RNA: Bacterial large signal recognition particle RNA
RNA sequence: CCGUGCUAGACGGGGAGUUGGCGGUGCCCUGUUACCCGCAAUCCGCCAUAGCGGGGUUGAAUUCCUACCUGAGGUAGCUACAUGUGAGGUCUGCCUUGUAAUAGGAGUGUUGACAAUUGGGUCCUACGCAAUGGAAACCUAUGAAAUUGGUCAGGUCCGGAAGGAAGCAGCCAUAAGUAGAACUUUCUAUGUGCCGUGGGGUCGCCUAGUUCGAGCUUUCUCUUACAAGUAACGCUUGGUUGUUUCUAUCGAUGGUAGGUGCACGG
Numbered sequence: 001c002c003g004u005g006c007u008a009g010a011c012g013g014g015g016a017g018u019u020g021g022c023g024g025u026g027c028c029c030u031g032u033u034a035c036c037c038g039c040a041a042u043c044c045g046c047c048a049u050a051g052c053g054g055g056g057u058u059g060a061a062u063u064c065c066u067a068c069c070u071g072a073g074g075u076a077g078c079u080a081c082a083u084g085u086g087a088g089g090u091c092u093g094c095c096u097u098g099u100a101a102u103a104g105g106a107g108u109g110u111u112g113a114c115a116a117u118u119g120g121g122u123c124c125u126a127c128g129c130a131a132u133g134g135a136a137a138c139c140u141a142u143g144a145a146a147u148u149g150g151u152c153a154g155g156u157c158c159g160g161a162a163g164g165a166a167g168c169a170g171c172c173a174u175a176a177g178u179a180g181a182a183c184u185u186u187c188u189a190u191g192u193g194c195c196g197u198g199g200g201g202u203c204g205c206c207u208a209g210u211u212c213g214a215g216c217u218u219u220c221u222c223u224u225a226c227a228a229g230u231a232a233c234g235c236u237u238g239g240u241u242g243u244u245u246c247u248a249u250c251g252a253u254g255g256u257a258g259g260u261g262c263a264c265g266g
Stems, first nucleotide, its partner, number of pairs: 001266006009058003012030004017025003035055005064259006073250005080243003085238004092231002096228006104220002106217003115211008123200006129191002132189005139180004148173004156165003